[Rfam]
RNA: mraW RNA
RNA sequence: AUGAAGUCUCGGCACGGAUGCCGUCAGGCUGCGGCCCUGAUGCACCUUCCCCGGUAUCAGGUCCGCAACCUGACGGCAUCCGUCCAGACGGAGACACGGG
Numbered sequence: 001a002u003g004a005a006g007u008c009u010c011g012g013c014a015c016g017g018a019u020g021c022c023g024u025c026a027g028g029c030u031g032c033g034g035c036c037c038u039g040a041u042g043c044a045c046c047u048u049c050c051c052c053g054g055u056a057u058c059a060g061g062u063c064c065g066c067a068a069c070c071u072g073a074c075g076g077c078a079u080c081c082g083u084c085c086a087g088a089c090g091g092a093g094a095c096a097c098g099g100g
Stems, first nucleotide, its partner, number of pairs: 010087001012085001014083005020077009030067005036061008